[Rfam]
RNA sequence: GGGGAGUAUGGUCGCAAGGCUGAAACUUAAAGGAAUUGACGGAAGGGCACACAAAGAGUGGAACCUGCGGCUUAAUUUGACUCAACACGGGAAAACUCACCGGGUCCAGAUACAUGGAUGAAAGACAAGCUGAUAGACUUUUCUCAAUUAUGUAAGUGGUGGUGCAUGGCCGUUCUUAGUUCGUGGAGUGGUUUGUCUGGUCUAUUCCGAUAACGAGCGAGACCCCAACGGUCUAAAUAGGGGCCGCAGCCCGGCUCGGCUCGCCUUCACGGGUGGGCCUUGCUAGCAGCGCGCUUCGAAGGCAAGCUUCUUAGACGGAUCGGGGCCGAUAAGGUCUCUGAAAUGGGUUAAUAACAGGUCAGUCAUGCCCUUAGAUGUUCCGGGCCGCACGCGCGUUACAAUGGGGGGCAAAACGAGUGUCCGUCAGGGCUUUUCCGCCGCCUACCGGUGGUGGUAACCCGUAGGGCCCCCCUUGACUGGGCUAGUCUCUUGCAAUUAUUGGUCUUCAACGAGGAAUUUUUAGUAGGCGCGGGUCAUUAACCCGUGCCGAAUGCGUCCCUGCCCUUUGUACACA
Numbered sequence: 001g002g003g004g005a006g007u008a009u010g011g012u013c014g015c016a017a018g019g020c021u022g023a024a025a026c027u028u029a030a031a032g033g034a035a036u037u038g039a040c041g042g043a044a045g046g047g048c049a050c051a052c053a054a055a056g057a058g059u060g061g062a063a064c065c066u067g068c069g070g071c072u073u074a075a076u077u078u079g080a081c082u083c084a085a086c087a088c089g090g091g092a093a094a095a096c097u098c099a100c101c102g103g104g105u106c107c108a109g110a111u112a113c114a115u116g117g118a119u120g121a122a123a124g125a126c127a128a129g130c131u132g133a134u135a136g137a138c139u140u141u142u143c144u145c146a147a148u149u150a151u152g153u154a155a156g157u158g159g160u161g162g163u164g165c166a167u168g169g170c171c172g173u174u175c176u177u178a179g180u181u182c183g184u185g186g187a188g189u190g191g192u193u194u195g196u197c198u199g200g201u202c203u204a205u206u207c208c209g210a211u212a213a214c215g216a217g218c219g220a221g222a223c224c225c226c227a228a229c230g231g232u233c234u235a236a237a238u239a240g241g242g243g244c245c246g247c248a249g250c251c252c253g254g255c256u257c258g259g260c261u262c263g264c265c266u267u268c269a270c271g272g273g274u275g276g277g278c279c280u281u282g283c284u285a286g287c288a289g290c291g292c293g294c295u296u297c298g299a300a301g302g303c304a305a306g307c308u309u310c311u312u313a314g315a316c317g318g319a320u321c322g323g324g325g326c327c328g329a330u331a332a333g334g335u336c337u338c339u340g341a342a343a344u345g346g347g348u349u350a351a352u353a354a355c356a357g358g359u360c361a362g363u364c365a366u367g368c369c370c371u372u373a374g375a376u377g378u379u380c381c382g383g384g385c386c387g388c389a390c391g392c393g394c395g396u397u398a399c400a401a402u403g404g405g406g407g408g409c410a411a412a413a414c415g416a417g418u419g420u421c422c423g424u425c426a427g428g429g430c431u432u433u434u435c436c437g438c439c440g441c442c443u444a445c446c447g448g449u450g451g452u453g454g455u456a457a458c459c460c461g462u463a464g465g466g467c468c469c470c471c472c473u474u475g476a477c478u479g480g481g482c483u484a485g486u487c488u489c490u491u492g493c494a495a496u497u498a499u500u501g502g503u504c505u506u507c508a509a510c511g512a513g514g515a516a517u518u519u520u521u522a523g524u525a526g527g528c529g530c531g532g533g534u535c536a537u538u539a540a541c542c543c544g545u546g547c548c549g550a551a552u553g554c555g556u557c558c559c560u561g562c563c564c565u566u567u568g569u570a571c572a573c574a
Stems, first nucleotide, its partner, number of pairs: 001028003010021004037572002039569003043566007051556002055520005060399001062397003066393004070388002076091004100383005106377001111154005124143002127140003158371002161369004167365001168363001169359003172355003179218006185194003198209003224347004229317002233314004239308002320340001322338006403472007417459001435454002439450004479510001484505002487502002526548008
The record is a 574-nucleotide part of an RNA, which matches "Eukaryotic small subunit ribosomal RNA" in Rfam. Rfam links the family to the GO terms structural constituent of ribosome and ribosome. A reference for the family is Cannone et al. (2002), "The comparative RNA web (CRW) site: an online database of comparative sequence and structure information for ribosomal, intron, and other RNAs", BMC Bioinformatics.